[Rfam]
About this RNA:
Shown here is a 98-nucleotide sequence from Cercocebus atys, a member of the family "mir-544 microRNA precursor family". Gene Ontology terms of the family: RISC complex and miRNA-mediated post-transcriptional gene silencing. The source organism's lineage runs through Eukaryota, Vertebrata, Tetrapoda, Catarrhini and Cercocebus.

RNA sequence: AUCCCCCAGGGGUCUUGUUAAAAUGCAGAUUCAGUCUUGGCGGGGCUAGGGCAUGGCUCCAGACUCUGCAUUUCUAACAAGUUUCCAGGGGAUGCCCA
Numbered sequence: 001a002u003c004c005c006c007c008a009g010g011g012g013u014c015u016u017g018u019u020a021a022a023a024u025g026c027a028g029a030u031u032c033a034g035u036c037u038u039g040g041c042g043g044g045g046c047u048a049g050g051g052c053a054u055g056g057c058u059c060c061a062g063a064c065u066c067u068g069c070a071u072u073u074c075u076a077a078c079a080a081g082u083u084u085c086c087a088g089g090g091g092a093u094g095c096c097c098a
Base pairs, nucleotide, nucleotide: 003091004090005089009085010084011083014081015080016079017078018077019076020075021073022072023071025069026068027067028066029065031063032062